Group I catalytic intron: a 299-nucleotide RNA sequence from Atta colombica. On this family, see Cate et al., Science 1996: "Crystal structure of a group I ribozyme domain: principles of RNA packing". About the family: Group I catalytic introns are large self-splicing ribozymes. They catalyse their own excision from mRNA, tRNA and rRNA precursors in a wide range of organisms. The core secondary structure consists of 9 paired regions (P1-P9). These fold to essentially two domains - the P4-P6 domain (formed from the stacking of P5, P4, P6 and P6a helices) and the P3-P9 domain (formed from the P8, P3, P7 and P9 helices). The secondary structure mark-up for this family represents only this conserved core. Group I catalytic introns often have long ORFs inserted in loop regions. The window size for this search is chosen to minimise search time and catch the small examples. A larger window size will find more matches. It scores 100 bits against the family's covariance model. Its family is annotated with Group I intron splicing in the Gene Ontology.
[Rfam]
RNA sequence: CUAUGGUCUUAUUGAACAAUGGCCAAAACUGUAGUGAACCUAAGGUUAAAAAUCAUCAAAUUGACGGGAACAUCCUAAAGCUAUCUAAACCAAGUAAGUAUGGUAACAUAACUUAUGGCUCAGGUAAUGACUCGAGGUAUGGUAAAAUCUAGAUAGAUAAUUUUAUGGACAAUCCGCAGCCAAGUACUAACUGCCCAAUCCUAAGGGUAAGGGUAUGCAGUUCAUCGACUAGACGGUGAUUGGUGUUAUUAUUAUUAAUAAUGCUUAAGAUAUAGUCAGACCCUACUUGAAAAAGUACA
Numbered sequence: 001c002u003a004u005g006g007u008c009u010u011a012u013u014g015a016a017c018a019a020u021g022g023c024c025a026a027a028a029c030u031g032u033a034g035u036g037a038a039c040c041u042a043a044g045g046u047u048a049a050a051a052a053u054c055a056u057c058a059a060a061u062u063g064a065c066g067g068g069a070a071c072a073u074c075c076u077a078a079a080g081c082u083a084u085c086u087a088a089a090c091c092a093a094g095u096a097a098g099u100a101u102g103g104u105a106a107c108a109u110a111a112c113u114u115a116u117g118g119c120u121c122a123g124g125u126a127a128u129g130a131c132u133c134g135a136g137g138u139a140u141g142g143u144a145a146a147a148u149c150u151a152g153a154u155a156g157a158u159a160a161u162u163u164u165a166u167g168g169a170c171a172a173u174c175c176g177c178a179g180c181c182a183a184g185u186a187c188u189a190a191c192u193g194c195c196c197a198a199u200c201c202u203a204a205g206g207g208u209a210a211g212g213g214u215a216u217g218c219a220g221u222u223c224a225u226c227g228a229c230u231a232g233a234c235g236g237u238g239a240u241u242g243g244u245g246u247u248a249u250u251a252u253u254a255u256u257a258a259u260a261a262u263g264c265u266u267a268a269g270a271u272a273u274a275g276u277c278a279g280a281c282c283c284u285a286c287u288u289g290a291a292a293a294a295g296u297a298c299a
Base pairs, nucleotide, nucleotide: 007025010022031039032038051241052240053239054238055237057235062178063177065176066175067174068173073169074168075167179221180220184216185215186214187213192209193208194207195206196205225278227277228276229275230274231273243264244263245262246261247260248259249258250257251256284297285296286295287294288293